This 58-nucleotide sequence from Rossellomorea vietnamensis belongs to the Rfam family "Ribosomal protein L13 leader". A reference for the family is Zengel and Lindahl (1994), "Diverse mechanisms for regulating ribosomal protein synthesis in Escherichia coli", Prog Nucleic Acid Res Mol Biol. Its family is annotated with regulation of gene expression in the Gene Ontology. Rfam's curators write: This family is a putative r-protein leader autoregulatory structure found in B. subtilis and other low-GC Gram-positive bacteria. It is located in the 5' untranslated regions of mRNAs encoding the L13-S9 (rplM-rpsI) ribosomal protein operon. The organism belongs to Rossellomorea, within Bacteria.
RNA sequence: GGUAUGUUAUUAACCCCACGAUAAGCCCCGGAAACUUAUUGUGAUUAGAAAAUAAAUA
Numbered sequence: 001g002g003u004a005u006g007u008u009a010u011u012a013a014c015c016c017c018a019c020g021a022u023a024a025g026c027c028c029c030g031g032a033a034a035c036u037u038a039u040u041g042u043g044a045u046u047a048g049a050a051a052a053u054a055a056a057u058a
Stems, first nucleotide, its partner, number of pairs: 007055005017043009